[Rfam]
RNA sequence: ACUGGGAGCGUGGCGUCUCCUGUAAUCCAGCUGCUUGGAGGUCGGGUUUAGAGGAUGGUUUGAGGUCGGGAGUUCUGGUACAGGGCGUUCUGCGUUGACCGGGCGUCCACACUAAGCAUGGCGUCAAUAUGGGCACCCUUGGGGAACCUGGGGUGGCCAGGUUGAUCAAUGAGAGGCGAACCGGGCCAGAGGGGAAACUCAGCAGCCAAAAGUCUCCGCGUCGUGCAGUAGUGGGAUCGCGCCUGGGAGCGGGAACCUUGUAUCAGCCCGUUCAAUAUAGCUAGACCUAAAUCUUU
Numbered sequence: 001a002c003u004g005g006g007a008g009c010g011u012g013g014c015g016u017c018u019c020c021u022g023u024a025a026u027c028c029a030g031c032u033g034c035u036u037g038g039a040g041g042u043c044g045g046g047u048u049u050a051g052a053g054g055a056u057g058g059u060u061u062g063a064g065g066u067c068g069g070g071a072g073u074u075c076u077g078g079u080a081c082a083g084g085g086c087g088u089u090c091u092g093c094g095u096u097g098a099c100c101g102g103g104c105g106u107c108c109a110c111a112c113u114a115a116g117c118a119u120g121g122c123g124u125c126a127a128u129a130u131g132g133g134c135a136c137c138c139u140u141g142g143g144g145a146a147c148c149u150g151g152g153g154u155g156g157c158c159a160g161g162u163u164g165a166u167c168a169a170u171g172a173g174a175g176g177c178g179a180a181c182c183g184g185g186c187c188a189g190a191g192g193g194g195a196a197a198c199u200c201a202g203c204a205g206c207c208a209a210a211a212g213u214c215u216c217c218g219c220g221u222c223g224u225g226c227a228g229u230a231g232u233g234g235g236a237u238c239g240c241g242c243c244u245g246g247g248a249g250c251g252g253g254a255a256c257c258u259u260g261u262a263u264c265a266g267c268c269c270g271u272u273c274a275a276u277a278u279a280g281c282u283a284g285a286c287c288u289a290a291a292u293c294u295u296u
Stems, first nucleotide, its partner, number of pairs: 001042003004021005026039003044294008056283005064273002067270004075266011089253005095247001099246008107235002110233005116226009125164004130159003134155006141148002173216005184207003191200003